The record is a 69-nucleotide RNA sequence from Leptobrachium leishanense, which matches "Small nucleolar RNA SNORD2" in Rfam.
The base pairs follow the family's consensus structure, which was predicted with WAR.
Rfam 15.1 lists 1,116 matches to the family in 660 species.
On this family, see Zhou et al., Gene 2004: "Identification of a novel box C/D snoRNA from mouse nucleolar cDNA library".
It is annotated as a C/D-box small nucleolar RNA.
RNA sequence: GAGCGAGAUGAUGGCAUACCAUCUUUCGGGACUGAAACUUGAUGAUCCCUUUUUUUUUUCUGAUUGCUC
Numbered sequence: 001g002a003g004c005g006a007g008a009u010g011a012u013g014g015c016a017u018a019c020c021a022u023c024u025u026u027c028g029g030g031a032c033u034g035a036a037a038c039u040u041g042a043u044g045a046u047c048c049c050u051u052u053u054u055u056u057u058u059u060c061u062g063a064u065u066g067c068u069c
Base pairs, nucleotide, nucleotide: 001069002068003067004066005065006064